Overview:
A member of the RNA family "Small nucleolar RNA snoR100" from Rhododendron williamsianum, 103 nucleotides long. A reference for the family is Marker et al. (2002), "Experimental RNomics: identification of 140 candidates for small non-messenger RNAs in the plant Arabidopsis thaliana", Curr Biol.

RNA sequence: CAAUGAAGGAAGCAUGAUAAUGUGCACAUAAAUUGAAUUGGGUGUCUAGACCUGCCCUCUCUGAUGUCAUUCAGAUAUGGGGGCGUGGUUCCACAGCAAAACA
Numbered sequence: 001c002a003a004u005g006a007a008g009g010a011a012g013c014a015u016g017a018u019a020a021u022g023u024g025c026a027c028a029u030a031a032a033u034u035g036a037a038u039u040g041g042g043u044g045u046c047u048a049g050a051c052c053u054g055c056c057c058u059c060u061c062u063g064a065u066g067u068c069a070u071u072c073a074g075a076u077a078u079g080g081g082g083g084c085g086u087g088g089u090u091c092c093a094c095a096g097c098a099a100a101a102c103a
Stems, first nucleotide, its partner, number of pairs: 012025004042086005052079001055074001
Its family is annotated with nucleolus and RNA processing in the Gene Ontology.